This 202-nucleotide RNA from Flavonifractor sp. An306 belongs to the Rfam family "6S / SsrS RNA". By type it is a non-coding RNA gene.
RNA sequence: CCAUUCCUGCUCGGUGCGUGACGGGUUUUAUUUAAACCCACAUUUCUGAAACGGGAUGCCCCACUCAUGACGUGGACUGCAGGCCUCCCGGCCGUUCCUUCGGGUGCGGCUGGAAGUUGGAAGCAACGAAGCGUCAUGGAGGCGACCCACCUGCCAUUCGUGCAGGUUUUAAAUGGAUCCGCACGGCCAGAGCGGGGUCCCC
Numbered sequence: 001c002c003a004u005u006c007c008u009g010c011u012c013g014g015u016g017c018g019u020g021a022c023g024g025g026u027u028u029u030a031u032u033u034a035a036a037c038c039c040a041c042a043u044u045u046c047u048g049a050a051a052c053g054g055g056a057u058g059c060c061c062c063a064c065u066c067a068u069g070a071c072g073u074g075g076a077c078u079g080c081a082g083g084c085c086u087c088c089c090g091g092c093c094g095u096u097c098c099u100u101c102g103g104g105u106g107c108g109g110c111u112g113g114a115a116g117u118u119g120g121a122a123g124c125a126a127c128g129a130a131g132c133g134u135c136a137u138g139g140a141g142g143c144g145a146c147c148c149a150c151c152u153g154c155c156a157u158u159c160g161u162g163c164a165g166g167u168u169u170u171a172a173a174u175g176g177a178u179c180c181g182c183a184c185g186g187c188c189a190g191a192g193c194g195g196g197g198u199c200c201c202c
Stems, first nucleotide, its partner, number of pairs: 005197007013188003017185003032173002034169005053148003057144004062139001064138001067137007079124002084120002088116001